[Rfam]
RNA sequence: UUUGCCGUGAGGCAUGCAGUGAAGUAAGCCAGACUGCGGUGUCUGUACUGACGAACAGGAACCAUAUACUGAGGCUAUGAGGUCGGAUGAGGUAACACAUCAUGCCGAAGUCCAAACCUUCCGCAAGGGAGGAAGUACCGAAGUAGUAGAUAUGGCAGAGAUAGACACAAGGAUAUUCAC
Numbered sequence: 001u002u003u004g005c006c007g008u009g010a011g012g013c014a015u016g017c018a019g020u021g022a023a024g025u026a027a028g029c030c031a032g033a034c035u036g037c038g039g040u041g042u043c044u045g046u047a048c049u050g051a052c053g054a055a056c057a058g059g060a061a062c063c064a065u066a067u068a069c070u071g072a073g074g075c076u077a078u079g080a081g082g083u084c085g086g087a088u089g090a091g092g093u094a095a096c097a098c099a100u101c102a103u104g105c106c107g108a109a110g111u112c113c114a115a116a117c118c119u120u121c122c123g124c125a126a127g128g129g130a131g132g133a134a135g136u137a138c139c140g141a142a143g144u145a146g147u148a149g150a151u152a153u154g155g156c157a158g159a160g161a162u163a164g165a166c167a168c169a170a171g172g173a174u175a176u177u178c179a180c
Stems, first nucleotide, its partner, number of pairs: 001016001003014004028180001031177002035173001040167006046160001048158003062155006074147003078142001081139003085113004091106004
Dot-bracket structure: (.((((....)))).)...........(..((..(....(((((((.(((...........((((((......(((.(..(((.((((..((((........))))...)))).......................)))..)..)))..))))))))).).)))))).....)..))..)
A member of the RNA family "Group II catalytic intron D1-D4-3" from Anditalea andensis, 180 nucleotides long. It scores 84 bits against the family's covariance model. For this family Rfam cites "The ins and outs of group II introns" (Bonen and Vogel, Trends Genet, 2001).